RNA sequence: CGGACAGGGGGGUUCCUGCCACAGAACGGCAGGGCCUGUCCGGCAGGUUGUGCGUGACGAGUCAGGCGCGACCAGUGGUUGUCGCUCGGGGGUGAUCGCCG
Numbered sequence: 001c002g003g004a005c006a007g008g009g010g011g012g013u014u015c016c017u018g019c020c021a022c023a024g025a026a027c028g029g030c031a032g033g034g035c036c037u038g039u040c041c042g043g044c045a046g047g048u049u050g051u052g053c054g055u056g057a058c059g060a061g062u063c064a065g066g067c068g069c070g071a072c073c074a075g076u077g078g079u080u081g082u083c084g085c086u087c088g089g090g091g092g093u094g095a096u097c098g099c100c101g
Base pairs, nucleotide, nucleotide: 001042002041003040004039005038006037007036008035014034015033016032017031018030019029020028046073047072048071049070050069051068052067053066
This 101-nucleotide sequence from Streptomyces pristinaespiralis belongs to the Rfam family "che1 RNA".